[Rfam]
Nucleotides: 070
Base pairs, nucleotide, nucleotide: 003070004069005068006067008065009064011062012061013060015058016057017056018055019054020053021052022051023050027047028046029045030044
Number, partner (000 for none) and nucleotide at each position: 001000a002000c003070c004069u005068c006067c007000u008065g009064u010000g011062c012061c013060u014000a015058c016057u017056g018055a019054g020053c021052u022051g023050a024000u025000a026000a027047c028046a029045g030044u031000u032000g033000a034000c035000a036000a037000a038000a039000c040000a041000u042000g043000c044030a045029c046028u047027g048000g049000c050023u051022c052021a053020g054019u055018u056017c057016a058015g059000c060013a061012g062011g063000a064009a065008c066000c067006g068005g069004a070003g

mir-24 microRNA precursor family: a 70-nucleotide RNA from Electrophorus electricus.
Rfam 15.1 lists 1,372 matches to the family in 601 species.
Pairs were carried over by alignment from the consensus structure, which was predicted with RNAalifold.
On this family, see Lagos-Quintana et al., Science 2001: "Identification of novel genes coding for small expressed RNAs".
This family represents the microRNA (miRNA) mir-24 family. miRNAs are transcribed as ~70nt precursors (modelled here) and subsequently processed by the Dicer enzyme to give a ~22nt product. In this case the mature sequence comes from the 3' arm of the precursor. The extents of the hairpin precursors are not generally known and are estimated based on hairpin prediction. The products are thought to have regulatory roles through complementarity to mRNA. The involvement of Dicer in miRNA processing suggests a relationship with the phenomenon of RNA interference. miRNAs are numbered based on the sequence of the mature RNA. miR-24 has been identified in human and mouse.
It scores 82 bits against the family's covariance model.
NCBI's taxonomy places the organism under Eukaryota, Eumetazoa, Characiphysae, Gymnotidae, Electrophorus.